[Rfam]
RNA sequence: AAGUGAGGUAGAGGCGCGAUAUUUAACAGUCUUUAGUUGAGCAUGAGAAAGCAAAGAUGCUAAGGAGAAGGAAAUGUUGCCGAAGCUUGUAAUAUUCUCAGUAUUACUUGCUGGGUCUGCAGUUAAGAUCUGCAGGACUGUCUCAAUAAACUUUCCCAGUUUAUUGAGUUGUGCUAUCUCAUUU
Numbered sequence: 001a002a003g004u005g006a007g008g009u010a011g012a013g014g015c016g017c018g019a020u021a022u023u024u025a026a027c028a029g030u031c032u033u034u035a036g037u038u039g040a041g042c043a044u045g046a047g048a049a050a051g052c053a054a055a056g057a058u059g060c061u062a063a064g065g066a067g068a069a070g071g072a073a074a075u076g077u078u079g080c081c082g083a084a085g086c087u088u089g090u091a092a093u094a095u096u097c098u099c100a101g102u103a104u105u106a107c108u109u110g111c112u113g114g115g116u117c118u119g120c121a122g123u124u125a126a127g128a129u130c131u132g133c134a135g136g137a138c139u140g141u142c143u144c145a146a147u148a149a150a151c152u153u154u155c156c157c158a159g160u161u162u163a164u165u166g167a168g169u170u171g172u173g174c175u176a177u178c179u180c181a182u183u184u
Stems, first nucleotide, its partner, number of pairs: 006179006016080009031065007084112003089107007113139002116136007142168009
Dot-bracket structure: .....((((((....(((((((((......(((((((.....................)))))))......)))))))))...(((..(((((((.....)))))))..)))((.(((((((.......))))))).))..(((((((((.........))))))))).....)))))).....
Lysine riboswitch aptamer: a 184-nucleotide RNA sequence from Tissierella sp. P1. The match comes from Rfam's covariance-model search (100 bits).